Yersinia sRNA 276: a 195-nucleotide RNA sequence from Yersinia ruckeri.
Pairs were carried over by alignment from the consensus structure, which was predicted with RNAfold.
For this family Rfam cites "Transcriptomic profiling of Yersinia pseudotuberculosis reveals reprogramming of the Crp regulon by temperature and uncovers Crp as a master regulator of small RNAs" (Nuss et al., PLoS Genet, 2015).
The source organism's lineage runs through Bacteria, Pseudomonadota, Gammaproteobacteria, Yersiniaceae and Yersinia.
It is annotated as an antisense RNA.
RNA sequence: CACCGACAUCAGGGAUUCGUUUUUCGAACCUUGUCCCACUGCCAGAUAGGAAUGCAUACCCAGCUCUUUCAUCUGCUGUUCACCGAUCACGCGGGUGAUGAUGUUUUUGCUGAAUGCAUCGGCCAAUUGGCGAGCCUGAGAGGCCAGAUAAGCGGCAUUACAGAUAUUAGGCGGCAUAUUGCCCAGAUCUUUGGC
Number, nucleotide and partner (000 for none) at each position: 001c000002a000003c000004c000005g189006a188007c000008a000009u000010c000011a000012g032013g031014g030015a000016u028017u027018c026019g025020u000021u000022u000023u000024u000025c019026g018027a017028a016029c000030c014031u013032u012033g043034u000035c041036c000037c000038a000039c000040u000041g035042c000043c033044a000045g000046a000047u000048a000049g000050g059051a000052a000053u000054g000055c000056a000057u000058a000059c050060c000061c000062a077063g076064c075065u000066c000067u000068u000069u000070c000071a000072u000073c000074u000075g064076c063077u062078g135079u134080u133081c132082a000083c130084c129085g128086a127087u126088c000089a000090c000091g123092c122093g000094g120095g119096u118097g117098a000099u112100g111101a000102u109103g108104u000105u000106u000107u000108u103109g102110c000111u100112g099113a000114a000115u000116g000117c097118a096119u095120c094121g000122g092123c091124c000125a000126a087127u086128u085129g084130g083131c000132g081133a080134g079135c078136c163137u162138g161139a000140g159141a158142g000143g156144c155145c154146a000147g000148a000149u000150a000151a000152g000153c000154g145155g144156c143157a000158u141159u140160a000161c138162a137163g136164a000165u000166a000167u186168u185169a000170g183171g182172c181173g000174g000175c000176a000177u000178a000179u000180u000181g172182c171183c170184c000185a168186g167187a000188u006189c005190u000191u000192u000193g000194g000195c000